[Rfam]
RNA sequence: GCAUCACCAUCAUCAUAUUUGAUUAGCUUUCAGGCUGUUGACUGGAGGUGUAUGCACGCAAGCUUCCGGAACUCAUUUAGAAAAACCCUCGGAAGAUUUAUCUUUCGGGGGUUUUUUCGU
Numbered sequence: 001g002c003a004u005c006a007c008c009a010u011c012a013u014c015a016u017a018u019u020u021g022a023u024u025a026g027c028u029u030u031c032a033g034g035c036u037g038u039u040g041a042c043u044g045g046a047g048g049u050g051u052a053u054g055c056a057c058g059c060a061a062g063c064u065u066c067c068g069g070a071a072c073u074c075a076u077u078u079a080g081a082a083a084a085a086c087c088c089u090c091g092g093a094a095g096a097u098u099u100a101u102c103u104u105u106c107g108g109g110g111g112u113u114u115u116u117u118c119g120u
Stems, first nucleotide, its partner, number of pairs: 008044002011040002014037001018033002021030001045066004049060002080117016
Rfam assigns this 120-nucleotide RNA sequence from Moritella sp. PE36 to the family "Histidine operon leader".
Pairs were carried over by alignment from the consensus structure, which is taken from published work.
Rfam's curators write: At least 6 amino acid operons are known to be regulated by attenuation. In each a leader sequence of 150-200 bp is found upstream of the first gene in the operon. This leader sequence can assume two different secondary structures known as the terminator and the anti-terminator structure. In each case the leader also codes for very short peptide sequence that is rich in the end product amino acid of the operon. The terminator structure is recognised as a termination signal for RNA polymerase and the operon is not transcribed. This structure forms when the cell has an excess of the regulatory amino acid and ribosome movement over the leader transcript is not impeded. When there is a deficiency of the charged tRNA of the regulatory amino acid the ribosome translating the leader peptide stalls and the antiterminator structure can form. This allows RNA polymerase to transcribe the operon. In the Rfam alignment the consensus structure is of the terminator structure.